[Rfam]
RNA sequence: AGCACUGUGUGGUAUCUGCAGCCAGUUGCUUCAUCAGCUGGUUUGUUCAAAAGCCAGUGCGAGACAAACUCAACGUCUGGCAUCGUUGGUCUCCGGGCUGCCUGUGCUCAGAGUCCUGGUAUUUUUGUUGAAACAAGC
Numbered sequence: 001a002g003c004a005c006u007g008u009g010u011g012g013u014a015u016c017u018g019c020a021g022c023c024a025g026u027u028g029c030u031u032c033a034u035c036a037g038c039u040g041g042u043u044u045g046u047u048c049a050a051a052a053g054c055c056a057g058u059g060c061g062a063g064a065c066a067a068a069c070u071c072a073a074c075g076u077c078u079g080g081c082a083u084c085g086u087u088g089g090u091c092u093c094c095g096g097g098c099u100g101c102c103u104g105u106g107c108u109c110a111g112a113g114u115c116c117u118g119g120u121a122u123u124u125u126u127g128u129u130g131a132a133a134c135a136a137g138c
Stems, first nucleotide, its partner, number of pairs: 002060006015053001017051001018046004023041001024039005064126001066124003070119003079108005
RNA: Small nucleolar RNA SNORA8